This 127-nucleotide RNA sequence from an Alicyclobacillaceae bacterium belongs to the Rfam family "c-di-AMP riboswitch aptamer (ydaO/yuaA leader)". A search with the family's covariance model found it, with a score of 96 bits. The pairing is the family consensus, mapped onto this sequence.

RNA sequence: GAUGUUCUAUCGCUGAAUUCCAUGAGAAGCGGAGAAACCAAUCUUUUGGGGUGAAUCGCGCAAGUAGCGUAGGGAAGCCUGCUCCCAAACCCGUCAGCUAACUCCGUAAGCGUUGUAGGUGGUGUUA
Numbered sequence: 001g002a003u004g005u006u007c008u009a010u011c012g013c014u015g016a017a018u019u020c021c022a023u024g025a026g027a028a029g030c031g032g033a034g035a036a037a038c039c040a041a042u043c044u045u046u047u048g049g050g051g052u053g054a055a056u057c058g059c060g061c062a063a064g065u066a067g068c069g070u071a072g073g074g075a076a077g078c079c080u081g082c083u084c085c086c087a088a089a090c091c092c093g094u095c096a097g098c099u100a101a102c103u104c105c106g107u108a109a110g111c112g113u114u115g116u117a118g119g120u121g122g123u124g125u126u127a
Base pairs, nucleotide, nucleotide: 011112012111013110014109018028019027020026029107030106031105032104033103034102039048040047049092050091051090057069058068059067072086073085074084075083